[Rfam]
RNA sequence: GCGGCUCCAAGGUGCCCGACGCCCAGGCGGCCUAUGAAUCGGCGCAAACCCUGAUGCCCACGGCCAUGGCGGGCGUGAACUUCGUGCUGCACGGCGCGG
Dot-bracket structure: ....................(......)(((........................)))..............(.((.................)).)..
This 99-nucleotide RNA sequence from Denitrobaculum tricleocarpae belongs to the Rfam family "Pyrrolysine insertion sequence mttB". On this family, see Theil Have et al., BMC Bioinformatics 2013: "Effects of using coding potential, sequence conservation and mRNA structure conservation for predicting pyrroly-sine containing genes". Gene Ontology term of the family: pyrrolysine incorporation.